[Rfam]
RNA sequence: UCCUUCGGCGUCCCAGGUGGGGUGCCGUGGGACCGCCCUGGUGUCUGUGGCAGUGGGAUCCCGUGGCUGUGUUUUCCUGGUGGCCCGGUC
Numbered sequence: 001u002c003c004u005u006c007g008g009c010g011u012c013c014c015a016g017g018u019g020g021g022g023u024g025c026c027g028u029g030g031g032a033c034c035g036c037c038c039u040g041g042u043g044u045c046u047g048u049g050g051c052a053g054u055g056g057g058a059u060c061c062c063g064u065g066g067c068u069g070u071g072u073u074u075u076c077c078u079g080g081u082g083g084c085c086c087g088g089u090c
Stems, first nucleotide, its partner, number of pairs: 005088004011083002013080005019073002022070002024067009033053001035051003038047001
mir-663 microRNA precursor family: a 90-nucleotide sequence from Macaca fascicularis. Its family is annotated with miRNA-mediated post-transcriptional gene silencing and RISC complex in the Gene Ontology. The base pairs follow the family's consensus structure, which was predicted with RNAalifold.